This 75-nucleotide RNA sequence from Alligator mississippiensis belongs to the Rfam family "Mammalian CPEB3 ribozyme".

RNA sequence: AUUGCAAGUUUUAGGCCAUAGCAGAAGUGCUCACAAUGUGACCUGUUAGAUUUCAACAAAUCUGUGAAUUUUGCU
Numbered sequence: 001a002u003u004g005c006a007a008g009u010u011u012u013a014g015g016c017c018a019u020a021g022c023a024g025a026a027g028u029g030c031u032c033a034c035a036a037u038g039u040g041a042c043c044u045g046u047u048a049g050a051u052u053u054c055a056a057c058a059a060a061u062c063u064g065u066g067a068a069u070u071u072u073g074c075u
Stems, first nucleotide, its partner, number of pairs: 014043002017040001020075007027039003047064007